[Rfam]
RNA sequence: CGCACUUACUAGGGGCGCCAAUCGGCUGAGAUGAACCCUUUGAACCUGAUCUAGUUAAUACUAGCGGAGGGAAGUAGGAAUGAUUUCGA
Number, nucleotide and partner (000 for none) at each position: 001c000002g000003c000004a000005c000006u077007u076008a075009c074010u073011a039012g038013g037014g036015g000016c033017g026018c025019c024020a000021a000022u000023c000024g019025g018026c017027u000028g000029a000030g000031a000032u000033g016034a000035a000036c014037c013038c012039u011040u000041u000042g000043a000044a000045c070046c069047u068048g000049a000050u000051c064052u063053a062054g061055u000056u000057a000058a000059u000060a000061c054062u053063a052064g051065c000066g000067g000068a047069g046070g045071g000072a000073a010074g009075u008076a007077g006078g000079a000080a000081u000082g000083a000084u000085u000086u000087c000088g000089a000
About this RNA: The record is an 89-nucleotide sequence from Bacillus sp. FJAT-27916, which matches "TPP riboswitch aptamer (THI element)" in Rfam. Rfam links the family to the GO term thiamine pyrophosphate binding. Rfam describes the family as follows. Vitamin B(1) in its active form thiamin pyrophosphate (TPP) is an essential coenzyme that is synthesised by coupling of pyrimidine and thiazole moieties in bacteria. The previously detected thiamin-regulatory element, thi box was extended, resulting in a new, highly conserved RNA secondary structure, the THI element, which is widely distributed in eubacteria and also occurs in some archaea. Analysis of operon structures identified a large number of new candidate thiamin-regulated genes, mostly transporters, in various prokaryotic organisms.